[Rfam]
Nucleotides: 216
Base pairs, nucleotide, nucleotide: 012036013035014034015033019031020030021029022028024184025183026182039090040087043085044084045083046082047080048079049075050074051073052072053071055070056069057068058067059066060065109210110208112207113206114205115204116203117202129201130200131199132198133197134160135159136158139154140153141152142151165196166195167194168193169192170191171190172189174187175186
Number, partner (000 for none) and nucleotide at each position: 001000a002000a003000a004000g005000u006000c007000c008000u009000g010000a011000c012036c013035c014034g015033g016000u017000a018000a019031g020030g021029a022028u023000u024184g025183g026182c027000c028022a029021u030020c031019c032000a033015c034014c035013g036012g037000a038000a039090c040087c041000g042000a043085g044084u045083g046082u047080u048079g049075c050074g051073u052072g053071g054000u055070g056069u057068g058067g059066g060065a061000g062000c063000g064000a065060u066059c067058c068057c069056g070055c071053c072052u073051g074050c075049g076000a077000a078000g079048c080047a081000u082046a083045c084044a085043c086000a087040g088000c089000a090039g091000g092000c093000a094000u095000g096000c097000a098000g099000g100000c101000u102000g103000u104000g105000u106000g107000a108000u109210u110208g111000a112207g113206c114205c115204u116203c117202g118000a119000a120000a121000g122000c123000a124000g125000a126000g127000u128000g129201g130200c131199g132198g133197a134160g135159c136158c137000g138000a139154c140153g141152u142151u143000g144000u145000u146000a147000a148000g149000u150000a151142g152141g153140c154139g155000g156000a157000a158136g159135g160134c161000a162000a163000c164000a165196g166195u167194g168193c169192u170191g171190c172189c173000a174187c175186c176000g177000a178000g179000a180000g181000g182026g183025c184024c185000u186175g187174g188000g189172g190171g191170c192169a193168g194167c195166a196165c197133u198132c199131c200130g201129c202117c203116g204115g205114g206113g207112u208110c209000g210109a211000a212000g213000a214000g215000c216000a
Rfam assigns this 216-nucleotide RNA sequence to the family "Group II catalytic intron D1-D4-6". About the family: Group II introns are found in rRNA, tRNA and mRNA of organelles in fungi, plants and protists, and also in mRNA in bacteria. A reference for the family is Lehmann and Schmidt (2003), "Group II introns: structure and catalytic versatility of large natural ribozymes", Crit Rev Biochem Mol Biol. Pairs were carried over by alignment from the consensus structure.